RNA sequence: AACACGCUCCCUUAGAUCCACCUCUGGGGAACGGCCCCUCUGCCGUGAGCCGCGGUCGUCUCCCAGGCAACCGCUGGGCUCCGGCGGAGGGUCUCCCGGCAACCUCCCGGUUGUACGGUCGGAGGUGCUUGAGUCAUUGGCGUGUGAGAGUAGUCUACCUGCAGGCCAGCCUCAGUGCUGCCCUGGCCUCUGACGAGACAUGCCCAGUGCAGCCCGGCUGGCCUGCGGACACG
Numbered sequence: 001a002a003c004a005c006g007c008u009c010c011c012u013u014a015g016a017u018c019c020a021c022c023u024c025u026g027g028g029g030a031a032c033g034g035c036c037c038c039u040c041u042g043c044c045g046u047g048a049g050c051c052g053c054g055g056u057c058g059u060c061u062c063c064c065a066g067g068c069a070a071c072c073g074c075u076g077g078g079c080u081c082c083g084g085c086g087g088a089g090g091g092u093c094u095c096c097c098g099g100c101a102a103c104c105u106c107c108c109g110g111u112u113g114u115a116c117g118g119u120c121g122g123a124g125g126u127g128c129u130u131g132a133g134u135c136a137u138u139g140g141c142g143u144g145u146g147a148g149a150g151u152a153g154u155c156u157a158c159c160u161g162c163a164g165g166c167c168a169g170c171c172u173c174a175g176u177g178c179u180g181c182c183c184u185g186g187c188c189u190c191u192g193a194c195g196a197g198a199c200a201u202g203c204c205c206a207g208u209g210c211a212g213c214c215c216g217g218c219u220g221g222c223c224u225g226c227g228g229a230c231a232c233g
Stems, first nucleotide, its partner, number of pairs: 002145007011133005019127008027097004036091004042085004047081001050078002099114006159228005166221001168219004177213005183207004188202001190197001

Shown here is a 233-nucleotide RNA from Anguilla anguilla, a member of the family "Small nucleolar RNA SNORA53". Rfam links the family to the GO terms nucleolus and RNA processing. It scores 104 bits against the family's covariance model. The family's consensus secondary structure was predicted with RNAalifold. From the family's description: The snoRNA ACA53 belongs to the H/ACA family of pseudouridylation guide snoRNAs. Rfam classes the family as an H/ACA-box small nucleolar RNA.